[Rfam]
RNA sequence: GGUGCAUUGGGCAGUGGGUUAAAAGGUUGGGACCAGUGGAGUGAAUAUUUCAUAAUCACUCGUUUAGUCCCUACCUUUCCGUGAGCCAUUGCAUUUAAACGACUUCUCCUUCCACUGAGCAUU
Dot-bracket structure: (((((.................................................................................................................)))))
Numbered sequence: 001g002g003u004g005c006a007u008u009g010g011g012c013a014g015u016g017g018g019u020u021a022a023a024a025g026g027u028u029g030g031g032a033c034c035a036g037u038g039g040a041g042u043g044a045a046u047a048u049u050u051c052a053u054a055a056u057c058a059c060u061c062g063u064u065u066a067g068u069c070c071c072u073a074c075c076u077u078u079c080c081g082u083g084a085g086c087c088a089u090u091g092c093a094u095u096u097a098a099a100c101g102a103c104u105u106c107u108c109c110u111u112c113c114a115c116u117g118a119g120c121a122u123u
Stems, first nucleotide, its partner, number of pairs: 001123005